[Rfam]
A member of the RNA family "Clostridiales-1 RNA" from Eubacterium sp. CAG:248, 165 nucleotides long.
RNA sequence: UAAUACCUGGGUUAAAAGGUCCAAAACCACAUGAGCUCGUUUAUAGGUGGGUUUAGACCUUGGACCCCUACGAUAUGAACAUGAAAGUGGGAUGAUAAUCCCACGAUAUGCGAAUAUUGGGGAGAAUUGUGGGAGUGCGUAGCACGGAACAAUUCGUAGGUAUCA
Numbered sequence: 001u002a003a004u005a006c007c008u009g010g011g012u013u014a015a016a017a018g019g020u021c022c023a024a025a026a027c028c029a030c031a032u033g034a035g036c037u038c039g040u041u042u043a044u045a046g047g048u049g050g051g052u053u054u055a056g057a058c059c060u061u062g063g064a065c066c067c068c069u070a071c072g073a074u075a076u077g078a079a080c081a082u083g084a085a086a087g088u089g090g091g092a093u094g095a096u097a098a099u100c101c102c103a104c105g106a107u108a109u110g111c112g113a114a115u116a117u118u119g120g121g122g123a124g125a126a127u128u129g130u131g132g133g134a135g136u137g138c139g140u141a142g143c144a145c146g147g148a149a150c151a152a153u154u155c156g157u158a159g160g161u162a163u164c165a
Stems, first nucleotide, its partner, number of pairs: 001165001003163005010067002013064001016061006023054003027050004031044005069121001071119006080110003087104007124155007135145004
The base pairs follow the family's consensus structure, which is taken from published work.